This 72-nucleotide RNA sequence from Caenorhabditis elegans belongs to the Rfam family "mir-357 microRNA precursor family". The source organism's lineage runs through Eukaryota, Protostomia, Nematoda, Chromadorea and Caenorhabditis. It is one of the family's seed sequences. For this family Rfam cites "Repertoire and evolution of miRNA genes in four divergent nematode species" (de Wit et al., Genome Res, 2009). Gene Ontology terms of the family: miRNA-mediated post-transcriptional gene silencing and RISC complex.
[Rfam]
RNA sequence: GCGGAUCCCUACAACGCUGCGCAUAUGCAUGAACACAAUGAAAAUGUAAAUGCCAGUCGUUGCAGGAGUUCG
Numbered sequence: 001g002c003g004g005a006u007c008c009c010u011a012c013a014a015c016g017c018u019g020c021g022c023a024u025a026u027g028c029a030u031g032a033a034c035a036c037a038a039u040g041a042a043a044a045u046g047u048a049a050a051u052g053c054c055a056g057u058c059g060u061u062g063c064a065g066g067a068g069u070u071c072g
Stems, first nucleotide, its partner, number of pairs: 008066003012062004016057004021053004026048005